[Rfam]
Nucleotides: 097
Base pairs, nucleotide, nucleotide: 003095004094038055039054040053041052
Number, partner (000 for none) and nucleotide at each position: 001000c002000u003095g004094c005000a006000c007000u008000g009000a010000u011000g012000a013000u014000u015000g016000u017000a018000g019000a020000u021000g022000u023000g024000a025000c026000u027000g028000a029000c030000c031000u032000g033000g034000c035000a036000c037000u038055g039054c040053u041052g042000u043000c044000u045000u046000c047000u048000g049000g050000g051000g052041c053040a054039g055038c056000u057000c058000u059000g060000g061000c062000c063000a064000g065000g066000a067000a068000a069000u070000g071000a072000c073000c074000u075000c076000u077000g078000u079000u080000a081000a082000u083000c084000u085000u086000c087000u088000c089000u090000c091000u092000g093000a094004g095003c096000a097000g

Annotation: Z30 small nucleolar RNA: a 97-nucleotide RNA from Collichthys lucidus. A reference for the family is Galardi et al. (2002), "Purified box C/D snoRNPs are able to reproduce site-specific 2'-O-methylation of target RNA in vitro", Mol Cell Biol. The family's consensus secondary structure was predicted with PFOLD. Lineage of the source: Eukaryota > Metazoa > Eumetazoa > Actinopterygii > Collichthys. It is annotated as a C/D-box small nucleolar RNA.